RNA sequence: GACCGGGGACGGCCCCGGUCGUCUUGCCUUCUUUUUAAAGGGACGACCCUU
Dot-bracket structure: ((((((((....)))))))).................(((((....)))))

The family of this 51-nucleotide RNA from Oxalobacter formigenes is "Guanidine-II riboswitch aptamer (mini-ykkC)". The literature on the family includes a 2007 paper in Nucleic Acids Res by Weinberg et al., "Identification of 22 candidate structured RNAs in bacteria using the CMfinder comparative genomics pipeline". Taxonomically the source falls in Oxalobacter formigenes (Bacteria, Pseudomonadati, Oxalobacteraceae, Oxalobacter).